The record is an 83-nucleotide RNA from Sphaceloma murrayae, which matches "Small nucleolar RNA R38" in Rfam. On this family, see Qu et al., Nucleic Acids Res 2001: "Identification of 10 novel snoRNA gene clusters from Arabidopsis thaliana". snoR38 is a C/D box small nucleolar RNA conserved across yeast, human, Arabidopsis and rice. It is encoded in the intron of elongation factor-1 gamma in both pombe and cerevisiae. snoR38 guides the methylation of 2'-O-ribose sites in 28S rRNA. Rfam classes the family as a C/D-box small nucleolar RNA. Pairs were carried over by alignment from the consensus structure, which was predicted with PFOLD.

RNA sequence: UUUCAAGAGAUGAGACCAUUAUAAAACAGUUAUCCCUGUCUGAAGACUAUUGUUGAGAACCGUAUUCACACUCUGAUUUGAAG
Numbered sequence: 001u002u003u004c005a006a007g008a009g010a011u012g013a014g015a016c017c018a019u020u021a022u023a024a025a026a027c028a029g030u031u032a033u034c035c036c037u038g039u040c041u042g043a044a045g046a047c048u049a050u051u052g053u054u055g056a057g058a059a060c061c062g063u064a065u066u067c068a069c070a071c072u073c074u075g076a077u078u079u080g081a082a083g
Base pairs, nucleotide, nucleotide: 001083002082003081004080005079006078007077